[Rfam]
RNA sequence: GGAUCGGGAGACGCGCGGUGGGACGUGUGUCGAGUAUUGAUCGGAUCGUGUCGUCUCUAUUGGGCAGACCGCCGGGGCCCGACGGCGUGACGC
Numbered sequence: 001g002g003a004u005c006g007g008g009a010g011a012c013g014c015g016c017g018g019u020g021g022g023a024c025g026u027g028u029g030u031c032g033a034g035u036a037u038u039g040a041u042c043g044g045a046u047c048g049u050g051u052c053g054u055c056u057c058u059a060u061u062g063g064g065c066a067g068a069c070c071g072c073c074g075g076g077g078c079c080c081g082a083c084g085g086c087g088u089g090a091c092g093c
Stems, first nucleotide, its partner, number of pairs: 002042004010031008067091001069089001070087005

This 93-nucleotide RNA sequence from Marivita geojedonensis belongs to the Rfam family "Rhodo-rpoB RNA".
Taxonomically the source falls in Marivita (Bacteria, Pseudomonadati, Alphaproteobacteria, Roseobacteraceae).
By type it is a cis-regulatory element.
It scores 72 bits against the family's covariance model.
The family's consensus secondary structure is taken from published work.